[Rfam]
RNA sequence: GCCUGGUGGUUCCUGGAGUCGGCUCUGAAGUGCUGAACUUUAGGUUUUUAAUAACAGGCAAACAUUGAUUUCUGUGAUUUUAUGCAUGGAAGCUGCCUCUAUAGCAGCGCUCCAUAGCCCGGUCGCAGAUACACUU
Number, nucleotide and partner (000 for none) at each position: 001g059002c058003c057004u056005g000006g000007u050008g049009g000010u000011u000012c044013c043014u042015g041016g040017a039018g000019u036020c035021g034022g033023c032024u000025c000026u000027g000028a000029a000030g000031u000032g023033c022034u021035g020036a019037a000038c000039u017040u016041u015042a014043g013044g012045u000046u000047u000048u000049u008050a007051a000052u000053a000054a000055c000056a004057g003058g002059c001060a000061a000062a000063c000064a000065u000066u000067g000068a000069u000070u000071u000072c128073u000074g126075u125076g124077a123078u122079u121080u000081u000082a000083u000084g118085c117086a115087u114088g113089g112090a000091a000092g108093c107094u106095g105096c104097c000098u000099c000100u000101a000102u000103a000104g096105c095106a094107g093108c092109g000110c000111u000112c089113c088114a087115u086116a000117g085118c084119c000120c000121g079122g078123u077124c076125g075126c074127a000128g072129a000130u000131a000132c000133a000134c000135u000136u000
RNA: Small nucleolar RNA SNORA84